[Rfam]
RNA sequence: CCUCCAUUUCUUGGCAUACAUGUAAUUGUUCAGUAUUCAUGUGUGUUAUGUACGGAGGUAAACUAGAUCCAGUGCUAUGUCUUCGGUACCAGUGCGUUCAUCGUCUGCUGGUUCUAUCCUCAAUCGCUGGAACAACA
Numbered sequence: 001c002c003u004c005c006a007u008u009u010c011u012u013g014g015c016a017u018a019c020a021u022g023u024a025a026u027u028g029u030u031c032a033g034u035a036u037u038c039a040u041g042u043g044u045g046u047u048a049u050g051u052a053c054g055g056a057g058g059u060a061a062a063c064u065a066g067a068u069c070c071a072g073u074g075c076u077a078u079g080u081c082u083u084c085g086g087u088a089c090c091a092g093u094g095c096g097u098u099c100a101u102c103g104u105c106u107g108c109u110g111g112u113u114c115u116a117u118c119c120u121c122a123a124u125c126g127c128u129g130g131a132a133c134a135a136c137a
Stems, first nucleotide, its partner, number of pairs: 001058005015045006022038001024037003070129005089111006096105001

Shown here is a 137-nucleotide RNA sequence from Chanos chanos, a member of the family "Small nucleolar RNA SNORA57". The family has 26 seed sequences and 1,736 matches in Rfam 15.1. It is annotated as an H/ACA-box small nucleolar RNA. For this family Rfam cites "Identification of 13 novel human modification guide RNAs" (Vitali et al., Nucleic Acids Res, 2003). About the family: U99 belongs to the H/ACA class of snoRNAs which are thought to guide the sites of modification of uridines to pseudouridines, the target for this family is unknown.